Record summary: Rfam assigns this 91-nucleotide RNA sequence from Lactobacillus pasteurii to the family "Lacto-usp RNA". Rfam classes the family as a small RNA. It scores 88 bits against the family's covariance model. The base pairs follow the family's consensus structure, which is taken from published work.
[Rfam]
RNA sequence: GAUCAAACAAUAAGACGUGGGAGUUAAUAAAUAACAUCCGAAUCGGAAUACUGGCUCGUCUCAGGAUCCAUAUUCGCUGCGAUAUUAACUC
Dot-bracket structure: .....................((((((((.........(((((.(((...((((......))))..)))..)))))......)))))))).